The record is a 110-nucleotide RNA sequence from Oryza brachyantha, which matches "Small nucleolar RNA Z188" in Rfam.
RNA sequence: GCGAGCCGGUGAUGAUUGAAGAACUAUAUAUGGUGAAUUCGAUGAAUGUGCUCGCGUGCCGCUGGGUGCGCAGCUGUGGUGAUAUGCAUCCUUGUUCAUCUGAGGCUCGC
Numbered sequence: 001g002c003g004a005g006c007c008g009g010u011g012a013u014g015a016u017u018g019a020a021g022a023a024c025u026a027u028a029u030a031u032g033g034u035g036a037a038u039u040c041g042a043u044g045a046a047u048g049u050g051c052u053c054g055c056g057u058g059c060c061g062c063u064g065g066g067u068g069c070g071c072a073g074c075u076g077u078g079g080u081g082a083u084a085u086g087c088a089u090c091c092u093u094g095u096u097c098a099u100c101u102g103a104g105g106c107u108c109g110c
Stems, first nucleotide, its partner, number of pairs: 002109006
NCBI's taxonomy places the organism under Eukaryota, Streptophytina, Liliopsida, commelinids, Oryza. The literature on the family includes a 2003 paper in Nucleic Acids Res by Chen et al., "The high diversity of snoRNAs in plants: identification and comparative study of 120 snoRNA genes from Oryza sativa". Rfam classes the family as a C/D-box small nucleolar RNA. Its family is annotated with RNA processing and nucleolus in the Gene Ontology.